[Rfam]
RNA sequence: GGACAAGGAUCUUCCGUUAAAAGCGCUCAUGCCCUGUGGGCAACACGGAAGUCAGUACAUCCUGUACA
Numbered sequence: 001g002g003a004c005a006a007g008g009a010u011c012u013u014c015c016g017u018u019a020a021a022a023g024c025g026c027u028c029a030u031g032c033c034c035u036g037u038g039g040g041c042a043a044c045a046c047g048g049a050a051g052u053c054a055g056u057a058c059a060u061c062c063u064g065u066a067c068a
Base pairs, nucleotide, nucleotide: 011051012050013049014048015047016046017045026040027039028038029037030036055067056066057065058064
Dot-bracket structure: ..........(((((((........(((((.....)))))....)))))))...((((.....)))).
Background
This 68-nucleotide RNA from Lederbergia galactosidilytica belongs to the Rfam family "Bacillaceae-1 RNA". By type it is a small RNA.